Record summary
The family of this 93-nucleotide RNA sequence from Geitlerinema sp. PCC 7407 is "Glutamine riboswitch aptamer (glnA leader)". Taxonomically the source falls in Geitlerinema (Bacteria, Bacillati, Cyanobacteriota, Cyanophyceae).
[Rfam]
RNA sequence: AUCGUUCAUCCCCAUAAGGGCUCGGGUCAUCUUUACAAGGCGAUCGCAGCGCUUGGGGGACGGAAGUAGGGAAAAAUCCCGAAGGAACGCGCC
Numbered sequence: 001a002u003c004g005u006u007c008a009u010c011c012c013c014a015u016a017a018g019g020g021c022u023c024g025g026g027u028c029a030u031c032u033u034u035a036c037a038a039g040g041c042g043a044u045c046g047c048a049g050c051g052c053u054u055g056g057g058g059g060a061c062g063g064a065a066g067u068a069g070g071g072a073a074a075a076a077u078c079c080c081g082a083a084g085g086a087a088c089g090c091g092c093c
Base pairs, nucleotide, nucleotide: 003089004088005087006086007085009060010059011058012057013056063090069080070079071078